msiK RNA: a 58-nucleotide RNA sequence from Alloscardovia macacae. Pairs were carried over by alignment from the consensus structure, which is taken from published work. NCBI's taxonomy places the organism under Bacteria, Bacillati, Actinomycetes, Bifidobacteriales, Alloscardovia.
[Rfam]
RNA sequence: ACCGAAAACCUCUCACUCGGAUCGUUGGGCACGUACCUGCCCAUGAAAGGAAUAAUUA
Numbered sequence: 001a002c003c004g005a006a007a008a009c010c011u012c013u014c015a016c017u018c019g020g021a022u023c024g025u026u027g028g029g030c031a032c033g034u035a036c037c038u039g040c041c042c043a044u045g046a047a048a049g050g051a052a053u054a055a056u057u058a
Stems, first nucleotide, its partner, number of pairs: 009050003013046003026043006